[Rfam]
RNA sequence: UUUUAAGUGCGUUUAUUAAAUGCGUUUGUCUAAGAUAAUUAUUUAAGAUUAUUCUUGUAAAUAUAUUUAAAUAUUAAUAAUUCUUAAAAUAAAAAAAUAUCCUCAAUUGCAAUAUUAUUGUAGCAUAGUAAUUUGUUAACUAAAUAUUAAAGUGUUCCAUAGAAAAUUUUUAAAUUACAACAAAUAAAAUAAAGUAUGAAUUAAUAUCAAAAUUUUAAUAAAAAUUAAAAAAUUAAAAUAGGGCAAGUCCUACUCUCCUUUACAAAGAGAACAUUAUGAUAUGUAAUUGUAUGUUUGAUUGGGGCAAUACUAUAUUUAUUUAUAUAGCAUAAGAACUAUAUUCUUUGAAAUUAUAAAAGGUUCGAGCAGGUUAACAAGCAUUAAAAAUAAAUGUGUUUCAUCGUCUACUUAUUACCAUGAUUGAUUGUUCAUCAAAAUAGUAAUUCGUUAGUUGGGUUAAAAUCGUUGUAAAGCAGAUUUGUUUAUAUAUUUAAUUUUUAUAAUUAAUAAUAAUUAAUAUAAGUACGCAAGGAUUGAUUAUUGAAAAAAGAAAGAAGAAU
Numbered sequence: 001u002u003u004u005a006a007g008u009g010c011g012u013u014u015a016u017u018a019a020a021u022g023c024g025u026u027u028g029u030c031u032a033a034g035a036u037a038a039u040u041a042u043u044u045a046a047g048a049u050u051a052u053u054c055u056u057g058u059a060a061a062u063a064u065a066u067u068u069a070a071a072u073a074u075u076a077a078u079a080a081u082u083c084u085u086a087a088a089a090u091a092a093a094a095a096a097a098u099a100u101c102c103u104c105a106a107u108u109g110c111a112a113u114a115u116u117a118u119u120g121u122a123g124c125a126u127a128g129u130a131a132u133u134u135g136u137u138a139a140c141u142a143a144a145u146a147u148u149a150a151a152g153u154g155u156u157c158c159a160u161a162g163a164a165a166a167u168u169u170u171u172a173a174a175u176u177a178c179a180a181c182a183a184a185u186a187a188a189a190u191a192a193a194g195u196a197u198g199a200a201u202u203a204a205u206a207u208c209a210a211a212a213u214u215u216u217a218a219u220a221a222a223a224a225u226u227a228a229a230a231a232a233u234u235a236a237a238a239u240a241g242g243g244c245a246a247g248u249c250c251u252a253c254u255c256u257c258c259u260u261u262a263c264a265a266a267g268a269g270a271a272c273a274u275u276a277u278g279a280u281a282u283g284u285a286a287u288u289g290u291a292u293g294u295u296u297g298a299u300u301g302g303g304g305c306a307a308u309a310c311u312a313u314a315u316u317u318a319u320u321u322a323u324a325u326a327g328c329a330u331a332a333g334a335a336c337u338a339u340a341u342u343c344u345u346u347g348a349a350a351u352u353a354u355a356a357a358a359g360g361u362u363c364g365a366g367c368a369g370g371u372u373a374a375c376a377a378g379c380a381u382u383a384a385a386a387a388u389a390a391a392u393g394u395g396u397u398u399c400a401u402c403g404u405c406u407a408c409u410u411a412u413u414a415c416c417a418u419g420a421u422u423g424a425u426u427g428u429u430c431a432u433c434a435a436a437a438u439a440g441u442a443a444u445u446c447g448u449u450a451g452u453u454g455g456g457u458u459a460a461a462a463u464c465g466u467u468g469u470a471a472a473g474c475a476g477a478u479u480u481g482u483u484u485a486u487a488u489a490u491u492u493a494a495u496u497u498u499u500a501u502a503a504u505u506a507a508u509a510a511u512a513a514u515u516a517a518u519a520u521a522a523g524u525a526c527g528c529a530a531g532g533a534u535u536g537a538u539u540a541u542u543g544a545a546a547a548a549a550g551a552a553a554g555a556a557g558a559a560u
Base pairs, nucleotide, nucleotide: 239252240251241250242249254477255476256475258473259472260471261470262469263468264467265466267464268463271284272283273282274281286308287307288306289305290304310327311326312325313324314323315322333363334362335361336360337359376398377397378396379395380394381393401455402454403453405451406450407449408447411444412443413442414441415440422431423430424429
RNA: Trypanosomatid mitochondrial large subunit ribosomal RNA
Organism: Trypanosoma brucei